[Rfam]
RNA sequence: GGUCGUAAUUCCGGCAAACCGGAAACGUUUCGGACGGCGGUUCGAUUCCGCCCACCUCCACCACUGGGGGGGUGCACUGGCUUCGACGGGGCGGUAGAAGGCUAGCAGGCGACUCGAAAGGCGACGGACGUAAUCCGCGCAAAACCACAAACGCCAACGAUGAGCGUUACGCACUGGCCGCUUAA
Numbered sequence: 001g002g003u004c005g006u007a008a009u010u011c012c013g014g015c016a017a018a019c020c021g022g023a024a025a026c027g028u029u030u031c032g033g034a035c036g037g038c039g040g041u042u043c044g045a046u047u048c049c050g051c052c053c054a055c056c057u058c059c060a061c062c063a064c065u066g067g068g069g070g071g072g073u074g075c076a077c078u079g080g081c082u083u084c085g086a087c088g089g090g091g092c093g094g095u096a097g098a099a100g101g102c103u104a105g106c107a108g109g110c111g112a113c114u115c116g117a118a119a120g121g122c123g124a125c126g127g128a129c130g131u132a133a134u135c136c137g138c139g140c141a142a143a144a145c146c147a148c149a150a151a152c153g154c155c156a157a158c159g160a161u162g163a164g165c166g167u168u169a170c171g172c173a174c175u176g177g178c179c180g181c182u183u184a185a
Stems, first nucleotide, its partner, number of pairs: 001114005026093003030089003036052005053074007115130002
RNA: permuted transfer-messenger RNA